The family of this 77-nucleotide RNA from Anolis carolinensis is "mir-144 microRNA precursor family". The family's consensus secondary structure was predicted with RNAalifold. It is one of the family's seed sequences.
RNA sequence: UCUCUGGGCCGGAUAUCAUCAUAUACUGUAAGUUGGAAUGAGACACUACAGUAUAGAUGAUGUACUACCUUCACCUA
Numbered sequence: 001u002c003u004c005u006g007g008g009c010c011g012g013a014u015a016u017c018a019u020c021a022u023a024u025a026c027u028g029u030a031a032g033u034u035g036g037a038a039u040g041a042g043a044c045a046c047u048a049c050a051g052u053a054u055a056g057a058u059g060a061u062g063u064a065c066u067a068c069c070u071u072c073a074c075c076u077a
Base pairs, nucleotide, nucleotide: 007069008068011065013063014062015061016060017059018058019057020056022055023054024053025052026051027050028049029048030047032044033043034042